[Rfam]
RNA sequence: UUCGUCGUGUACUCCCACAGACUGUCCGGGUUGGUCAGCAGUUCGUCGCCGACGUAGUCGCCGUCGGCCAGCGUGCCGAGCACGACGUGCUCCCCGUACUCGCCAGGGCCGAUCUUGCUGACCUUGCCGUGCGCGAUGAGCACGAUCUCGUCGACGCUGUCGCCGAAUUCCGCGAUGACCUCGCCCGGUCCGUACUCGCGCUGGACGAACCCUUCGGCCAUCGCGUCGAGGACGGUGGUGUCGGGAAACUCCCUGAGCGCGGCGAACUCGCGAAGUUCGGGCGGAACGACCUUGAUCCGCGCGCCAUCGUUGGUGAAAGAGACCCGUCCGUUGCCGACCGUGCAGGUCAGCCUGCGGUUGACCCGGUAGGUCCCGCCGGCGGCCUGGACCCAGGGCAGCAUCUUGAGCAGCCAGCGCGACGAUAUCCCCUGCAUCUGCGGUUCGGAUUUGGUCGUCGUCGCCAGGUUCCGCGCUGCCGCCGUGCCGAGGCUCUGUGCUUGCUGUUCCCCGG
Numbered sequence: 001u002u003c004g005u006c007g008u009g010u011a012c013u014c015c016c017a018c019a020g021a022c023u024g025u026c027c028g029g030g031u032u033g034g035u036c037a038g039c040a041g042u043u044c045g046u047c048g049c050c051g052a053c054g055u056a057g058u059c060g061c062c063g064u065c066g067g068c069c070a071g072c073g074u075g076c077c078g079a080g081c082a083c084g085a086c087g088u089g090c091u092c093c094c095c096g097u098a099c100u101c102g103c104c105a106g107g108g109c110c111g112a113u114c115u116u117g118c119u120g121a122c123c124u125u126g127c128c129g130u131g132c133g134c135g136a137u138g139a140g141c142a143c144g145a146u147c148u149c150g151u152c153g154a155c156g157c158u159g160u161c162g163c164c165g166a167a168u169u170c171c172g173c174g175a176u177g178a179c180c181u182c183g184c185c186c187g188g189u190c191c192g193u194a195c196u197c198g199c200g201c202u203g204g205a206c207g208a209a210c211c212c213u214u215c216g217g218c219c220a221u222c223g224c225g226u227c228g229a230g231g232a233c234g235g236u237g238g239u240g241u242c243g244g245g246a247a248a249c250u251c252c253c254u255g256a257g258c259g260c261g262g263c264g265a266a267c268u269c270g271c272g273a274a275g276u277u278c279g280g281g282c283g284g285a286a287c288g289a290c291c292u293u294g295a296u297c298c299g300c301g302c303g304c305c306a307u308c309g310u311u312g313g314u315g316a317a318a319g320a321g322a323c324c325c326g327u328c329c330g331u332u333g334c335c336g337a338c339c340g341u342g343c344a345g346g347u348c349a350g351c352c353u354g355c356g357g358u359u360g361a362c363c364c365g366g367u368a369g370g371u372c373c374c375g376c377c378g379g380c381g382g383c384c385u386g387g388a389c390c391c392a393g394g395g396c397a398g399c400a401u402c403u404u405g406a407g408c409a410g411c412c413a414g415c416g417c418g419a420c421g422a423u424a425u426c427c428c429c430u431g432c433a434u435c436u437g438c439g440g441u442u443c444g445g446a447u448u449u450g451g452u453c454g455u456c457g458u459c460g461c462c463a464g465g466u467u468c469c470g471c472g473c474u475g476c477c478g479c480c481g482u483g484c485c486g487a488g489g490c491u492c493u494g495u496g497c498u499u500g501c502u503g504u505u506c507c508c509c510g511g
Base pairs, nucleotide, nucleotide: 007389008388010386011385014382015381020328021327024324025322026321031316032315035313036312037311038310039309041307042306045305047303048302049301050299051298054233055232058229059228060227062225063224064223065111066110067109068108075103077102078101079100080099082097083096084095117222119220120219122217123216126213129210130209131206134203135202138199140197144195149192150191154189155188157187159185161183163177164174165173234296236294237293240290241289242288243287249283251281252280253279256277257276258275259271260270261269329342330341331340351379352378354376355375356374357373360372361371362370363369391431392430393429394428395427397425400423401422402421404418405417407415437476438475439474440473443470444469445468446467447465448464449463450462451461452460484511485510486509488507
RNA: Saccharopolyspora sRNA 350
Organism: Prauserella marina